[Rfam]
RNA sequence: AGCAAGAUGAAGAGAUCUGUUUAAUGGCUGAAUUUGAUGUAGAAUUCCCAUAUCAUUAUAAUGGUCUUCAAAGUUCUCUGAUUGCU
Numbered sequence: 001a002g003c004a005a006g007a008u009g010a011a012g013a014g015a016u017c018u019g020u021u022u023a024a025u026g027g028c029u030g031a032a033u034u035u036g037a038u039g040u041a042g043a044a045u046u047c048c049c050a051u052a053u054c055a056u057u058a059u060a061a062u063g064g065u066c067u068u069c070a071a072a073g074u075u076c077u078c079u080g081a082u083u084g085c086u
Stems, first nucleotide, its partner, number of pairs: 001086005